RNA sequence: UGGAGUUGGCAAUAAUAUCUUUUGAGGUGCUCACGCGUUCCCUCUGCAAAUGUAGAGGUCUAAGCUUGAGAGCCACCUUAAGAGACGCCACUCUA
Numbered sequence: 001u002g003g004a005g006u007u008g009g010c011a012a013u014a015a016u017a018u019c020u021u022u023u024g025a026g027g028u029g030c031u032c033a034c035g036c037g038u039u040c041c042c043u044c045u046g047c048a049a050a051u052g053u054a055g056a057g058g059u060c061u062a063a064g065c066u067u068g069a070g071a072g073c074c075a076c077c078u079u080a081a082g083a084g085a086c087g088c089c090a091c092u093c094u095a
Stems, first nucleotide, its partner, number of pairs: 001095006009088002023080007030070004035065002041058006